[Rfam]
RNA sequence: AUAUCUAUCAGAUGGGCCCGGUCUGUUGUCUGGGGUGAGAUAAAUAAGCCUACAGUACUGUGGUAUGUUAAGCUUAUUGCCUGCUCUGUAUAGCAGUGUGGUUAAACCCAUGUGCCUACACGU
Numbered sequence: 001a002u003a004u005c006u007a008u009c010a011g012a013u014g015g016g017c018c019c020g021g022u023c024u025g026u027u028g029u030c031u032g033g034g035g036u037g038a039g040a041u042a043a044a045u046a047a048g049c050c051u052a053c054a055g056u057a058c059u060g061u062g063g064u065a066u067g068u069u070a071a072g073c074u075u076a077u078u079g080c081c082u083g084c085u086c087u088g089u090a091u092a093g094c095a096g097u098g099u100g101g102u103u104a105a106a107c108c109c110a111u112g113u114g115c116c117u118a119c120a121c122g123u
Stems, first nucleotide, its partner, number of pairs: 001045002008038003015030003062116001064114005074104001076102003082095003
Overview: Shown here is a 123-nucleotide RNA sequence from Salmo trutta, a member of the family "Small nucleolar RNA ACA64". A search with the family's covariance model found it, with a score of 45 bits. The family's consensus secondary structure was predicted with WAR. Rfam classes the family as an H/ACA-box small nucleolar RNA. NCBI's taxonomy places the organism under Eukaryota, Neopterygii, Salmoniformes, Salmonidae, Salmo.